[Rfam]
A member of the RNA family "GA-cis RNA", 87 nucleotides long. Rfam classes the family as a small RNA. Rfam's curators put it in the seed alignment.
RNA sequence: GAGAGGAGGCGUCCAUGCAUCGAAGAUGCAUAUAGGAAUGACGCCGACGAAAUGUCGCCGAACGAAUGUGAGGGGACGCCACAAAUA
Numbered sequence: 001g002a003g004a005g006g007a008g009g010c011g012u013c014c015a016u017g018c019a020u021c022g023a024a025g026a027u028g029c030a031u032a033u034a035g036g037a038a039u040g041a042c043g044c045c046g047a048c049g050a051a052a053u054g055u056c057g058c059c060g061a062a063c064g065a066a067u068g069u070g071a072g073g074g075g076a077c078g079c080c081a082c083a084a085a086u087a
Stems, first nucleotide, its partner, number of pairs: 008045006015031006054077003058073002062069002